[Rfam]
Rfam assigns this 126-nucleotide sequence from Neotoma lepida to the family "Small nucleolar RNA SNORA77". ACA63 (SNORA77) is a member of the H/ACA class of snoRNAs that guide the sites of modification of uridines to pseudouridines. This snoRNA was identified by computational screening and its expression in mouse experimentally verified by Northern blot and primer extension analysis. ACA63 is proposed to guide the pseudouridylation of 18S rRNA U814. Rfam classes the family as an H/ACA-box small nucleolar RNA. Pairs were carried over by alignment from the consensus structure, which was predicted with RNAalifold.

RNA sequence: GCAGAUUCACUCUGCACCUGGCUGCAGCUCCAGUCUGGUGCUUUUUCUGUCUGCUAGAGAAACAUUCCAGGAUGCUGUGACUGCCACUGCGUAUCAGGAGCAAUGCAGCUUCCUGGGGACACAAUU
Numbered sequence: 001g002c003a004g005a006u007u008c009a010c011u012c013u014g015c016a017c018c019u020g021g022c023u024g025c026a027g028c029u030c031c032a033g034u035c036u037g038g039u040g041c042u043u044u045u046u047c048u049g050u051c052u053g054c055u056a057g058a059g060a061a062a063c064a065u066u067c068c069a070g071g072a073u074g075c076u077g078u079g080a081c082u083g084c085c086a087c088u089g090c091g092u093a094u095c096a097g098g099a100g101c102a103a104u105g106c107a108g109c110u111u112c113c114u115g116g117g118g119a120c121a122c123a124a125u126u
Base pairs, nucleotide, nucleotide: 001054002053003052004051005050006049014041015040016039017038018037020035022033023032024031066117067116068115069114070113071112072111074109075108076107077106078105079104082102083101084100